[Rfam]
The family of this 113-nucleotide sequence from Trinickia fusca is "Glycine riboswitch aptamer".
RNA sequence: GCGCACGCGUCGGGAGAGCGCGUCCGUGGCCCAGGUUUUUUCGAACCCUGGCGCGAACGCCGCCGAAGGGGCACACCCACAAACUCUCAGGCAAAAGGACCGACUGCGUCGAA
Numbered sequence: 001g002c003g004c005a006c007g008c009g010u011c012g013g014g015a016g017a018g019c020g021c022g023u024c025c026g027u028g029g030c031c032c033a034g035g036u037u038u039u040u041u042c043g044a045a046c047c048c049u050g051g052c053g054c055g056a057a058c059g060c061c062g063c064c065g066a067a068g069g070g071g072c073a074c075a076c077c078c079a080c081a082a083a084c085u086c087u088c089a090g091g092c093a094a095a096a097g098g099a100c101c102g103a104c105u106g107c108g109u110c111g112a113a
Base pairs, nucleotide, nucleotide: 006108007107008106009104010103011102012101013100020060021059022058023057062092063091064090065088066087069086070085071084

It scores 50 bits against the family's covariance model.